[Rfam]
RNA sequence: GUAGAUGCUCAUCCUAUUUCUUAUGAUUGCAUAUGCUUCAUAAACCCAGGGAUGAUGCAGAGCCGAUUAUCGGUGCCUAUUGUCCAUGUCACAGAUGAGUAAGAUAUAACCCUCUUUUCAUCGCCGACCGGACUCAACGUUGAGUGAGGCACUAUCCGUCUGUAGACCUGAUUGUAUUUGUACACCUAUCUUUAUUUUUAAGGUAGGUGUUUUUUU
Numbered sequence: 001g002u003a004g005a006u007g008c009u010c011a012u013c014c015u016a017u018u019u020c021u022u023a024u025g026a027u028u029g030c031a032u033a034u035g036c037u038u039c040a041u042a043a044a045c046c047c048a049g050g051g052a053u054g055a056u057g058c059a060g061a062g063c064c065g066a067u068u069a070u071c072g073g074u075g076c077c078u079a080u081u082g083u084c085c086a087u088g089u090c091a092c093a094g095a096u097g098a099g100u101a102a103g104a105u106a107u108a109a110c111c112c113u114c115u116u117u118u119c120a121u122c123g124c125c126g127a128c129c130g131g132a133c134u135c136a137a138c139g140u141u142g143a144g145u146g147a148g149g150c151a152c153u154a155u156c157c158g159u160c161u162g163u164a165g166a167c168c169u170g171a172u173u174g175u176a177u178u179u180g181u182a183c184a185c186c187u188a189u190c191u192u193u194a195u196u197u198u199u200a201a202g203g204u205a206g207g208u209g210u211u212u213u214u215u216u
Stems, first nucleotide, its partner, number of pairs: 001063002006059003009055004014051002017049001019042001027035001072153007082133004094122006158167003182210010
RNA: GlmZ RNA activator of glmS mRNA
Organism: Photorhabdus laumondii